[Rfam]
RNA: mir-9193 microRNA precursor family
RNA sequence: CAUGCACUGGUGGGGUCCCAUAGCCUGGCUUGCGCCCUCUCGCAAUCCAGGACCCCAGGAGAGGCGGUUUCAGCCCGAUCCCUGCAGGCCAGGCUGAGGGACCCCACCAGUGCACG
Numbered sequence: 001c002a003u004g005c006a007c008u009g010g011u012g013g014g015g016u017c018c019c020a021u022a023g024c025c026u027g028g029c030u031u032g033c034g035c036c037c038u039c040u041c042g043c044a045a046u047c048c049a050g051g052a053c054c055c056c057a058g059g060a061g062a063g064g065c066g067g068u069u070u071c072a073g074c075c076c077g078a079u080c081c082c083u084g085c086a087g088g089c090c091a092g093g094c095u096g097a098g099g100g101a102c103c104c105c106a107c108c109a110g111u112g113c114a115c116g
Base pairs, nucleotide, nucleotide: 003114004113006111008109009108010107012105013104014103015102016101017100018099019098021096022095023094024093025092027090028089029088030087031086032085033084034083